[Rfam]
RNA sequence: GGAGUCGGCCAGACAGUCGCGGCACCCUUCGCGGGUGUCGAGGAAAGUCCGGGCUCCACAGGGCACGGUGCCAGGUAACGCCUGGGCGGCGCGAGCCGACGGAAAGUGCAACAGAAAGCAAACCGCCGAUGGCCCGGCCGUCCCGCAAGGGGCGCCGGGAUCAGGCAAGGGUGAAAUGGUGCGGUAAGAGCGCACCGCGAGCCUGGUAACAGGCCGGCACGGCAAACCCCACCGGGAGCAAGGCCAAAUAGGGACCCCAUGACGUGGCCCGCGUCGGGUCUGGGUAGGCUGCUAGAGCGCCGCGGCGACGCGGCGCCCAGAGGAAUGACUGUCCACGACAGAACCCGGCUUACCGGCCGGCUCCGCCC
Dot-bracket structure: ((((((((((.(((((((.((((((((.....))))))))....[[[.[[[[[((((...[[[[.((((((((((.....)))))(((((....)))).)((...((((.............(((((..(((.((......................)).))))))..)).......((((((.......))))))(((.(((((....))))))).)...))..)))))))))))))...((((......((((((...(((((.]]]]))))))))))).....))))......((((((((....))))))))..........)))))))..........]]]]]]]]...))))))))))....
About this RNA: The family of this 368-nucleotide sequence from Pseudoxanthomonas taiwanensis is "Bacterial RNase P class A". Its family is annotated with dimeric ribonuclease P complex, tRNA processing and ribonuclease P activity in the Gene Ontology. The family is grouped with related families in Rfam's "RNaseP clan". The base pairs follow the family's consensus structure, which is taken from published work.